[Rfam]
RNA sequence: UCUGCCAGGGCGGUGACCGGUCAUGUGACCGAAGGCCCGUGCAGGACGCAUACCGGCUGGGCGCCACAGCGGCGCCGG
Number, nucleotide and partner (000 for none) at each position: 001u045002c044003u043004g042005c041006c000007a000008g037009g000010g036011c035012g017013g000014u000015g000016a000017c012018c031019g030020g029021u028022c027023a000024u000025g000026u000027g022028a021029c020030c019031g018032a000033a000034g000035g011036c010037c008038c000039g000040u000041g005042c004043a003044g002045g001046a000047c000048g000049c000050a000051u000052a000053c000054c000055g000056g000057c078058u077059g076060g075061g000062c000063g073064c072065c071066a000067c000068a000069g000070c000071g065072g064073c063074g000075c060076c059077g058078g057
RNA: Cupriavidus-1 RNA